[Rfam]
RNA sequence: UUGAGGCUCCAACCGGGACUAAAGGUCCCCGCCCAACGGCCAUCUGCGCCUGAUGUAGGUGGCGGGGACCUUUAGUCCCGGUUGGAGCCUCCAA
Numbered sequence: 001u002u003g004a005g006g007c008u009c010c011a012a013c014c015g016g017g018a019c020u021a022a023a024g025g026u027c028c029c030c031g032c033c034c035a036a037c038g039g040c041c042a043u044c045u046g047c048g049c050c051u052g053a054u055g056u057a058g059g060u061g062g063c064g065g066g067g068a069c070c071u072u073u074a075g076u077c078c079c080g081g082u083u084g085g086a087g088c089c090u091c092c093a094a
Stems, first nucleotide, its partner, number of pairs: 003091025029065002033059002036056002044048001
The family of this 94-nucleotide RNA sequence from Miscanthus lutarioriparius is "MIR5387 microRNA precursor family".